[Rfam]
RNA: Small nucleolar RNA SNORD94
RNA sequence: UGUGUGAUGAUGAGAGGCGCAGGGGUACGGACCUCAGCCGAUGAUGGGGGCUGAGUGCUGCUGCAGGCUGUGAUCAGAGGACGAGUGGUUCACUGACGGAGCAGCAGCAGCACGACACAGACGCCUGACUGAGCUCA
Numbered sequence: 001u002g003u004g005u006g007a008u009g010a011u012g013a014g015a016g017g018c019g020c021a022g023g024g025g026u027a028c029g030g031a032c033c034u035c036a037g038c039c040g041a042u043g044a045u046g047g048g049g050g051c052u053g054a055g056u057g058c059u060g061c062u063g064c065a066g067g068c069u070g071u072g073a074u075c076a077g078a079g080g081a082c083g084a085g086u087g088g089u090u091c092a093c094u095g096a097c098g099g100a101g102c103a104g105c106a107g108c109a110g111c112a113c114g115a116c117a118c119a120g121a122c123g124c125c126u127g128a129c130u131g132a133g134c135u136c137a
Stems, first nucleotide, its partner, number of pairs: 001137002004134002